Rfam assigns this 88-nucleotide RNA sequence from Eubucco bourcierii to the family "Small nucleolar SNORD12/SNORD106".
The family's RNA type in Rfam is C/D-box small nucleolar RNA.
The base pairs follow the family's consensus structure, which was predicted with RNAalifold.
Rfam links the family to the GO terms nucleolus and RNA processing.
[Rfam]
RNA sequence: GCUGGUGGAGAUGAUGACAGUUUUUUCCCCGUCAGAGCGACAGUGUUGAUUUCUUGCUUGCAAGCCAGCGCGUGUCUGAUGCACCAGC
Numbered sequence: 001g002c003u004g005g006u007g008g009a010g011a012u013g014a015u016g017a018c019a020g021u022u023u024u025u026u027c028c029c030c031g032u033c034a035g036a037g038c039g040a041c042a043g044u045g046u047u048g049a050u051u052u053c054u055u056g057c058u059u060g061c062a063a064g065c066c067a068g069c070g071c072g073u074g075u076c077u078g079a080u081g082c083a084c085c086a087g088c
Stems, first nucleotide, its partner, number of pairs: 001088007009080001